[Rfam]
RNA sequence: GAAGGAGCUAGAAAUUAAGCUUUGCCAAACUCCAGAUUGAUUCGAUCAUAUACCUCUUCGUUUACCAGCAAAAAGCUUAAUAAUAGCCUUCUUAUAAGCAAAUAUUGCAUUUUAGAGGUGAUAUUAUGGCA
Numbered sequence: 001g002a003a004g005g006a007g008c009u010a011g012a013a014a015u016u017a018a019g020c021u022u023u024g025c026c027a028a029a030c031u032c033c034a035g036a037u038u039g040a041u042u043c044g045a046u047c048a049u050a051u052a053c054c055u056c057u058u059c060g061u062u063u064a065c066c067a068g069c070a071a072a073a074a075g076c077u078u079a080a081u082a083a084u085a086g087c088c089u090u091c092u093u094a095u096a097a098g099c100a101a102a103u104a105u106u107g108c109a110u111u112u113u114a115g116a117g118g119u120g121a122u123a124u125u126a127u128g129g130c131a
Stems, first nucleotide, its partner, number of pairs: 007130004014081010031070001033068001035066001037064001039062002086119004091115002094112001098108004
RNA: Avalong 5' UTR thermometer
Organism: Nostoc sp. PCC 7120 = FACHB-418